[Rfam]
RNA sequence: ACCUAAGGUAGAGGUGCUGUAAUUAAGAGUAUUUACUAGUAGUCGGCAGAUUAAGAUAAGUAAAAAAAGGGAUUACAGCCGAAGAUAAUCAAAUUGGCAAAUUUAUUAUCUGGCGUUAUGCAUAAUAUGUAUGACGCUGUCAUGUUGUUAUUAAUAUGGAGAGCUACAAGGUUA
Numbered sequence: 001a002c003c004u005a006a007g008g009u010a011g012a013g014g015u016g017c018u019g020u021a022a023u024u025a026a027g028a029g030u031a032u033u034u035a036c037u038a039g040u041a042g043u044c045g046g047c048a049g050a051u052u053a054a055g056a057u058a059a060g061u062a063a064a065a066a067a068a069g070g071g072a073u074u075a076c077a078g079c080c081g082a083a084g085a086u087a088a089u090c091a092a093a094u095u096g097g098c099a100a101a102u103u104u105a106u107u108a109u110c111u112g113g114c115g116u117u118a119u120g121c122a123u124a125a126u127a128u129g130u131a132u133g134a135c136g137c138u139g140u141c142a143u144g145u146u147g148u149u150a151u152u153a154a155u156a157u158g159g160a161g162a163g164c165u166a167c168a169a170g171g172u173u174a
Base pairs, nucleotide, nucleotide: 008167009166010165011164016079017078018077019076020075021074022073023072024071032064033063034062035061036060037059039057083111084110085109086108087107088106089105091103092102094100112138113137114136115135116134117133118132119131120130121129122128140159141158142157143156144155145154146153

Rfam assigns this 174-nucleotide sequence from Clostridium novyi to the family "Lysine riboswitch aptamer". It scores 110 bits against the family's covariance model. From the family's description: Riboswitches are metabolite binding domains within certain messenger RNAs that serve as precision sensors for their corresponding targets.